[Rfam]
The family of this 129-nucleotide RNA sequence from Prolemur simus is "Small nucleolar RNA SNORA30/SNORA37 family".
RNA sequence: CUAGCACUUUCAUAGGUUCUCCCUCAGGCUAUGGGGCCAGGCUUUGGUAGCUGGUCCUGAGAGAAAACCCUUGAUUAUAUCCUUGCCCUGGGAUGGUGCCAGGGGCGGCUGUCACUCAGUGGGAUAAUU
Numbered sequence: 001c002u003a004g005c006a007c008u009u010u011c012a013u014a015g016g017u018u019c020u021c022c023c024u025c026a027g028g029c030u031a032u033g034g035g036g037c038c039a040g041g042c043u044u045u046g047g048u049a050g051c052u053g054g055u056c057c058u059g060a061g062a063g064a065a066a067a068c069c070c071u072u073g074a075u076u077a078u079a080u081c082c083u084u085g086c087c088c089u090g091g092g093a094u095g096g097u098g099c100c101a102g103g104g105g106c107g108g109c110u111g112u113c114a115c116u117c118a119g120u121g122g123g124a125u126a127a128u129u
Stems, first nucleotide, its partner, number of pairs: 003058002006055003013046003018041003022036004068123003071119004076114001079112002083108005088102004

The source organism's lineage runs through Eukaryota, Eumetazoa, Euteleostomi, Euarchontoglires and Prolemur. About the family: The members of this family belong to the H/ACA class of snoRNAs that guide the sites of modification of uridines to pseudouridines. Rfam classes the family as an H/ACA-box small nucleolar RNA. The base pairs follow the family's consensus structure, which was predicted with RNAfold. Rfam links the family to the GO terms nucleolus and RNA processing.